Annotation
This 96-nucleotide RNA from Oryza punctata belongs to the Rfam family "Small nucleolar RNA Z157/R69/R10". By type it is a C/D-box small nucleolar RNA. Gene Ontology terms of the family: RNA processing and nucleolus. For this family Rfam cites "The high diversity of snoRNAs in plants: identification and comparative study of 120 snoRNA genes from Oryza sativa" (Chen et al., Nucleic Acids Res, 2003). The base pairs follow the family's consensus structure, which was predicted with PFOLD.
[Rfam]
RNA sequence: UUGGGGGUGGUGGUGAACAAAUUUUCUUUGGACUAGAGUUUCUGAUUCUACUACUUUGUGCUAGUUGAAGGAACUCUUGGCUGUCUGAGCUUCCAG
Numbered sequence: 001u002u003g004g005g006g007g008u009g010g011u012g013g014u015g016a017a018c019a020a021a022u023u024u025u026c027u028u029u030g031g032a033c034u035a036g037a038g039u040u041u042c043u044g045a046u047u048c049u050a051c052u053a054c055u056u057u058g059u060g061c062u063a064g065u066u067g068a069a070g071g072a073a074c075u076c077u078u079g080g081c082u083g084u085c086u087g088a089g090c091u092u093c094c095a096g
Stems, first nucleotide, its partner, number of pairs: 001096008039070004046063001049060003